This 158-nucleotide sequence from Alkalibaculum bacchi belongs to the Rfam family "glmS glucosamine-6-phosphate activated ribozyme aptamer". The literature on the family includes a 2004 paper in Nature by Winkler et al., "Control of gene expression by a natural metabolite-responsive ribozyme". It scores 81 bits against the family's covariance model. Rfam's curators write: This entry contains a glucosamine-6-phosphate activated ribozyme that is found in the mRNA for GlmS. GlmS is an enzyme that uses fructose-6-phosphate and glutamine to generate glucosamine-6-phosphate. The ribozyme catalyses self cleavage of the glmS mRNA that is thought to regulate GlmS activity. It is annotated as a riboswitch.

RNA sequence: UUAAAUACAAUAGCGCCAGGACUCAUGUAUUGAGUUGACGAGGAUGGGGAGUAUCGAAAUACUCGGCGGAUGCCCCAAACAGUUUAAAUUCUCCUAAGCUGUCUAAAGGUUUAAAACCCACAGGUGACUGUGAAACAAAGACCUUUCUAAAAAUAUGG
Number, nucleotide and partner (000 for none) at each position: 001u000002u000003a000004a000005a000006u000007a000008c000009a000010a000011u000012a000013g000014c000015g000016c000017c000018a000019g000020g036021a035022c034023u033024c032025a031026u000027g000028u000029a000030u000031u025032g024033a023034g022035u021036u020037g000038a000039c000040g000041a000042g000043g000044a000045u077046g076047g075048g074049g073050a000051g000052u000053a000054u066055c065056g064057a063058a000059a000060u000061a000062c000063u057064c056065g055066g054067c000068g000069g000070a000071u000072g000073c049074c048075c047076c046077a045078a000079a000080c101081a100082g099083u098084u097085u096086a095087a000088a000089u000090u000091c000092u000093c000094c000095u086096a085097a084098g083099c082100u081101g080102u000103c000104u000105a146106a145107a144108g143109g142110u000111u000112u000113a000114a000115a000116a000117c000118c000119c132120a131121c130122a129123g128124g000125u000126g000127a000128c123129u122130g121131u120132g119133a000134a000135a000136c000137a000138a000139a000140g000141a000142c109143c108144u107145u106146u105147c000148u000149a000150a000151a000152a000153a000154u000155a000156u000157g000158g000